Shown here is a 373-nucleotide RNA from Helcobacillus massiliensis, a member of the family "transfer-messenger RNA". Gene Ontology term of the family: RNA catabolic process. Rfam describes the family as follows. Bacterial tmRNA, also known as 10Sa RNA or SsrA, is named for its dual tRNA and mRNA-like properties. Its role is to liberate the mRNA from a stalled ribosome. For this family Rfam cites "The tmRNA Website: invasion by an intron" (Williams, Nucleic Acids Res, 2002). The base pairs follow the family's consensus structure, which is taken from published work.

RNA sequence: GGGGCCGAUCGGUUUCGACGGUAGAUGUCCAGCGAGGGGAAGCGGGCCGAGGAGCCACAGUCAUCUCGUUAACGAUCUGUGGAAACCAAUAAGUGCCGAACCUAAGCGCACUGACUUCGCUCUCGCUGCCUGAUCAGCGAGUAGCAGUCUGGACCGUCAGGAGCUGCUCGCGACCUGGCCUGUCCAUCAUUGAGCGAGCCACUGCUUCCCGUGCUUGUCAUCGGCACGGGGUGAACACUUCAGAAUGACUGAGUUCGUCGGCGACAUGUCUGUGUGAGCGCCGGAACUGAGAAAACGCCUUUCGCAGACUGCGCCCGGAGAAGCCCUGGCUUCGCACUAUCGGACGCGGGUUCGAUUCCCGCCGGCUCCACCU
Numbered sequence: 001g002g003g004g005c006c007g008a009u010c011g012g013u014u015u016c017g018a019c020g021g022u023a024g025a026u027g028u029c030c031a032g033c034g035a036g037g038g039g040a041a042g043c044g045g046g047c048c049g050a051g052g053a054g055c056c057a058c059a060g061u062c063a064u065c066u067c068g069u070u071a072a073c074g075a076u077c078u079g080u081g082g083a084a085a086c087c088a089a090u091a092a093g094u095g096c097c098g099a100a101c102c103u104a105a106g107c108g109c110a111c112u113g114a115c116u117u118c119g120c121u122c123u124c125g126c127u128g129c130c131u132g133a134u135c136a137g138c139g140a141g142u143a144g145c146a147g148u149c150u151g152g153a154c155c156g157u158c159a160g161g162a163g164c165u166g167c168u169c170g171c172g173a174c175c176u177g178g179c180c181u182g183u184c185c186a187u188c189a190u191u192g193a194g195c196g197a198g199c200c201a202c203u204g205c206u207u208c209c210c211g212u213g214c215u216u217g218u219c220a221u222c223g224g225c226a227c228g229g230g231g232u233g234a235a236c237a238c239u240u241c242a243g244a245a246u247g248a249c250u251g252a253g254u255u256c257g258u259c260g261g262c263g264a265c266a267u268g269u270c271u272g273u274g275u276g277a278g279c280g281c282c283g284g285a286a287c288u289g290a291g292a293a294a295a296c297g298c299c300u301u302u303c304g305c306a307g308a309c310u311g312c313g314c315c316c317g318g319a320g321a322a323g324c325c326c327u328g329g330c331u332u333c334g335c336a337c338u339a340u341c342g343g344a345c346g347c348g349g350g351u352u353c354g355a356u357u358c359c360c361g362c363c364g365g366c367u368c369c370a371c372c373u
Base pairs, nucleotide, nucleotide: 001369002368003367004366005365006364007363019342020341021340022339023338024337031331032330033329035327036326037325038324043317044316045315046314047313048068049067050066051065052064055082056081057080058079059078060077122141123140124139125138126137127136128135150186151185152184153183154182157178158177159176161175163174166199167198168197169196170195171194205233207231208230209229210228211227212226213225217249218248219247220246221245252288253287254286255285256284259283260282261281265276266275268309269308270307271306272303274301346362347361348360349359350358